[Rfam]
RNA sequence: UAUCAUUAGCCUAAAUUUUAAAAACGGGGAAACCAAUUUUUGGGGUGAAUCGCAUAAUAUAUGCGUAGGUUUGUGCCUUUACCGAAUCCGUCAGCUAACCUCGUAGAAUAAAAGGAGGAAGA
Numbered sequence: 001u002a003u004c005a006u007u008a009g010c011c012u013a014a015a016u017u018u019u020a021a022a023a024a025c026g027g028g029g030a031a032a033c034c035a036a037u038u039u040u041u042g043g044g045g046u047g048a049a050u051c052g053c054a055u056a057a058u059a060u061a062u063g064c065g066u067a068g069g070u071u072u073g074u075g076c077c078u079u080u081a082c083c084g085a086a087u088c089c090g091u092c093a094g095c096u097a098a099c100c101u102c103g104u105a106g107a108a109u110a111a112a113a114g115g116a117g118g119a120a121g122a
Stems, first nucleotide, its partner, number of pairs: 011106002016023002024104006034042002043089003051065004068083003

A member of the RNA family "c-di-AMP riboswitch aptamer (ydaO/yuaA leader)" from Clostridium acetobutylicum, 122 nucleotides long. Rfam's curators put it in the seed alignment. This family represents a conserved RNA structure found upstream of the ydaO and yuaA genes in Bacillus subtilis and related genes in other bacteria. Pairs were carried over by alignment from the consensus structure.